RNA sequence: ACUGUAUGAUGAUAUCCCACUGACUGAACACUCUGUAGUUGGUGUGUGUAUGAUUGAUCUUGGUGUUUCAAGACGGGACUGAUGGUGGC
Numbered sequence: 001a002c003u004g005u006a007u008g009a010u011g012a013u014a015u016c017c018c019a020c021u022g023a024c025u026g027a028a029c030a031c032u033c034u035g036u037a038g039u040u041g042g043u044g045u046g047u048g049u050a051u052g053a054u055u056g057a058u059c060u061u062g063g064u065g066u067u068u069c070a071a072g073a074c075g076g077g078a079c080u081g082a083u084g085g086u087g088g089c
Stems, first nucleotide, its partner, number of pairs: 001086004

Shown here is an 89-nucleotide RNA sequence from Pantherophis guttatus, a member of the family "Small nucleolar RNA SNORD21". NCBI's taxonomy places the organism under Eukaryota, Eumetazoa, Bifurcata, Toxicofera, Pantherophis. Rfam 15.1 lists 566 matches to the family in 536 species. Gene Ontology terms of the family: nucleolus and RNA processing. It scores 75 bits against the family's covariance model. Pairs were carried over by alignment from the consensus structure, which was predicted with PFOLD. The literature on the family includes a 1994 paper in Nucleic Acids Res by Qu et al., "U21, a novel small nucleolar RNA with a 13 nt. complementarity to 28S rRNA, is encoded in an intron of ribosomal protein L5 gene in chicken and mammals".